[Rfam]
RNA sequence: CUCUUAUCCCGAGCUGGCGGAGGGACAGGCCCUAUGAAGCCCAGCAACCGGUUUCUCUGUUAUUUAUUAUGUUCAAUUGAGUGAGACAACCAAGGUGCUAACCUGUUGCAAGGUUGUAUGAUUCCUUGAGCGAUAAGAG
Numbered sequence: 001c002u003c004u005u006a007u008c009c010c011g012a013g014c015u016g017g018c019g020g021a022g023g024g025a026c027a028g029g030c031c032c033u034a035u036g037a038a039g040c041c042c043a044g045c046a047a048c049c050g051g052u053u054u055c056u057c058u059g060u061u062a063u064u065u066a067u068u069a070u071g072u073u074c075a076a077u078u079g080a081g082u083g084a085g086a087c088a089a090c091c092a093a094g095g096u097g098c099u100a101a102c103c104u105g106u107u108g109c110a111a112g113g114u115u116g117u118a119u120g121a122u123u124c125c126u127u128g129a130g131c132g133a134u135a136a137g138a139g
Base pairs, nucleotide, nucleotide: 001139002138003137004136005135006134007133008132013042016041017040018039022032023031024030026108027107028106029104043099044098045097046096048095049094050091051090052089053088109128110127111126112125113124
Shown here is a 139-nucleotide RNA from Bacillus subtilis, a member of the family "SAM riboswitch aptamer (S box leader)". Taxonomically the source falls in Bacillus (Bacteria, Bacillota, Caryophanales, Bacillaceae). Pairs were carried over by alignment from the consensus structure, which is taken from published work.